[Rfam]
RNA sequence: AUUUUUGGAUAAUCGCAUGGGAGCUUCCUUCCCAUGAGGAAAGUCCAUGCUAGCACUGGCUGUGAUGCCAGUAGUGUUUGUGCUAGGCGAAGACAUAAGCCUAGGGACGAGAAAUCGUUACGGCGAUUGAAAGAGCUAAGUCAUUUGAUAGGCUCAAGUAGAUCUGAAAGUGCCACAGUGACGGAGUUUUUGUGGAAACGCAAAAAGUGGAACGCGGUAAACCCCUCAAGCUAGCAACCCAAACUUUGGUCGGGGCAUGGAAUGCAUGGAAGACGAACGUAGCAUUCUGACUGGAAACAGUAGACAGAUGAUUAUCGAAGGAAAUGGUACCUAGUCAUUUCUGGAACAAAACAUGGCUUAUAGAA
Numbered sequence: 001a002u003u004u005u006u007g008g009a010u011a012a013u014c015g016c017a018u019g020g021g022a023g024c025u026u027c028c029u030u031c032c033c034a035u036g037a038g039g040a041a042a043g044u045c046c047a048u049g050c051u052a053g054c055a056c057u058g059g060c061u062g063u064g065a066u067g068c069c070a071g072u073a074g075u076g077u078u079u080g081u082g083c084u085a086g087g088c089g090a091a092g093a094c095a096u097a098a099g100c101c102u103a104g105g106g107a108c109g110a111g112a113a114a115u116c117g118u119u120a121c122g123g124c125g126a127u128u129g130a131a132a133g134a135g136c137u138a139a140g141u142c143a144u145u146u147g148a149u150a151g152g153c154u155c156a157a158g159u160a161g162a163u164c165u166g167a168a169a170g171u172g173c174c175a176c177a178g179u180g181a182c183g184g185a186g187u188u189u190u191u192g193u194g195g196a197a198a199c200g201c202a203a204a205a206a207g208u209g210g211a212a213c214g215c216g217g218u219a220a221a222c223c224c225c226u227c228a229a230g231c232u233a234g235c236a237a238c239c240c241a242a243a244c245u246u247u248g249g250u251c252g253g254g255g256c257a258u259g260g261a262a263u264g265c266a267u268g269g270a271a272g273a274c275g276a277a278c279g280u281a282g283c284a285u286u287c288u289g290a291c292u293g294g295a296a297a298c299a300g301u302a303g304a305c306a307g308a309u310g311a312u313u314a315u316c317g318a319a320g321g322a323a324a325u326g327g328u329a330c331c332u333a334g335u336c337a338u339u340u341c342u343g344g345a346a347c348a349a350a351a352c353a354u355g356g357c358u359u360a361u362a363g364a365a
Base pairs, nucleotide, nucleotide: 004365005364006363007361008316009315010314011313012312013311014310016036017035018034019033020032021031041359042358043357045356046355047354048353049352050234051233052232053231054230055072056071057070058069059068060067078229079228080227082225083104084103085102086101087100088099105121106119107118108117109116110115122224123223125164126163127162128161133155134154135153136152140149141148142147170222171221172218173217174216187206188205189204190203191202192201193200194199238254239253240252258289259288260287261286262285263284264283290301291300292299293298320342321341322340323339324338325337326336327335328334
Annotation
The record is a 365-nucleotide sequence from Streptococcus himalayensis, which matches "Bacterial RNase P class B" in Rfam. The family is grouped with related families in Rfam's "RNaseP clan". Rfam classes the family as a ribozyme. From the family's description: Ribonuclease P (RNase P) is a ubiquitous endoribonuclease, found in archaea, bacteria and eukarya as well as chloroplasts and mitochondria. Its best characterised activity is the generation of mature 5'-ends of tRNAs by cleaving the 5'-leader elements of precursor-tRNAs. Cellular RNase Ps are ribonucleoproteins. RNA from bacterial RNase Ps retains its catalytic activity in the absence of the protein subunit, i.e. it is a ribozyme. Isolated eukaryotic and archaeal RNase P RNA has not been shown to retain its catalytic function, but is still essential for the catalytic activity of the holoenzyme. Although the archaeal and eukaryotic holoenzyme s have a much greater protein content than the bacterial ones, the RNA cores from all the three lineages are homologous -- helices corresponding to P1, P2, P3, P4, and P10/11 are common to all cellular RNase P RNAs. Yet, there is considerable sequence variation, particularly among the eukaryotic RNAs. The base pairs follow the family's consensus structure, which is taken from published work.